[Rfam]
RNA sequence: CGUGAGGGUGAUGAGUGGCACUAAUCAGCUGGGGGUGUCCGCUGCAGUGGCAUCGACCCCCCGGCCCGAAACCAACCUGAGGACACCCGCUGUGCACAGGGGCCAUCUGACCCACA
Numbered sequence: 001c002g003u004g005a006g007g008g009u010g011a012u013g014a015g016u017g018g019c020a021c022u023a024a025u026c027a028g029c030u031g032g033g034g035g036u037g038u039c040c041g042c043u044g045c046a047g048u049g050g051c052a053u054c055g056a057c058c059c060c061c062c063g064g065c066c067c068g069a070a071a072c073c074a075a076c077c078u079g080a081g082g083a084c085a086c087c088c089g090c091u092g093u094g095c096a097c098a099g100g101g102g103c104c105a106u107c108u109g110a111c112c113c114a115c116a
Stems, first nucleotide, its partner, number of pairs: 004115001006113003025069002028066001029064004034059002041054001043052003
Small nucleolar RNA SNORD67: a 116-nucleotide sequence from Pleuronectes platessa. The family has 15 seed sequences and 781 matches in Rfam 15.1. snoRNA HBII-166 belongs to the C/D family of snoRNAs. A search with the family's covariance model found it, with a score of 79 bits. The literature on the family includes a 2001 paper in EMBO J by Huttenhofer et al., "RNomics: an experimental approach that identifies 201 candidates for novel, small, non-messenger RNAs in mouse".